[Rfam]
RNA sequence: AAAUAAGAUAGAGGUUGCGAUAUUUAAUAGUAGCUUUGCAAUAAGAUUAAGCACGAGUGCAAAGUGAAAGGAGGUGUCGCCGAAACGAAUAACUGAGGCUUUAAGGUUAUUUCGUUGGGGUUAUGUAGAAUAUGCAUAACACUGUCAUAACGUCUGUUAUGAUGAGCUAUCACUAAA
Numbered sequence: 001a002a003a004u005a006a007g008a009u010a011g012a013g014g015u016u017g018c019g020a021u022a023u024u025u026a027a028u029a030g031u032a033g034c035u036u037u038g039c040a041a042u043a044a045g046a047u048u049a050a051g052c053a054c055g056a057g058u059g060c061a062a063a064g065u066g067a068a069a070g071g072a073g074g075u076g077u078c079g080c081c082g083a084a085a086c087g088a089a090u091a092a093c094u095g096a097g098g099c100u101u102u103a104a105g106g107u108u109a110u111u112u113c114g115u116u117g118g119g120g121u122u123a124u125g126u127a128g129a130a131u132a133u134g135c136a137u138a139a140c141a142c143u144g145u146c147a148u149a150a151c152g153u154c155u156g157u158u159a160u161g162a163u164g165a166g167c168u169a170u171c172a173c174u175a176a177a
Base pairs, nucleotide, nucleotide: 007171008170009169010168011167017080018079019078020077021076022075023074024073025072033065034064035063036062037061038060039059040058084116085115086114087113088111089110090109091108092107093106094105117143118142120140121139122138123137124136125135126134127133145162146161147160148159149158150157151156
Shown here is a 177-nucleotide sequence from Clostridium disporicum, a member of the family "Lysine riboswitch aptamer". It scores 116 bits against the family's covariance model. Taxonomically the source falls in Clostridium (Bacteria, Bacillati, Eubacteriales, Clostridiaceae). Pairs were carried over by alignment from the consensus structure, which is taken from published work.